[Rfam]
RNA sequence: GUCCAGUGAUUAAAAAAAUUCGCUACCCUGAAUUUCCAUGUGGAUCUCUUAUUUAUCACCAAGAUCUCUGAGGAC
Number, nucleotide and partner (000 for none) at each position: 001g075002u074003c073004c072005a000006g000007u000008g000009a000010u000011u000012a000013a000014a000015a000016a000017a000018a000019u000020u000021c000022g000023c000024u000025a000026c000027c000028c000029u000030g000031a000032a000033u000034u000035u000036c000037c000038a000039u000040g000041u000042g000043g000044a000045u000046c000047u000048c000049u000050u000051a000052u000053u000054u000055a000056u000057c000058a000059c000060c000061a000062a000063g000064a000065u000066c000067u000068c000069u000070g000071a000072g004073g003074a002075c001
RNA: Small nucleolar RNA SNORD24